[Rfam]
RNA sequence: UAUCUUUGCACACGAAAUAGGAAAAUCCUUUUUCAUACAUAAUAAUCAUUUAACAUAAUAUUGGAAUG
Numbered sequence: 001u002a003u004c005u006u007u008g009c010a011c012a013c014g015a016a017a018u019a020g021g022a023a024a025a026u027c028c029u030u031u032u033u034c035a036u037a038c039a040u041a042a043u044a045a046u047c048a049u050u051u052a053a054c055a056u057a058a059u060a061u062u063g064g065a066a067u068g
Stems, first nucleotide, its partner, number of pairs: 014034004019029003
RNA: S15-Flavobacteria ribosomal protein leader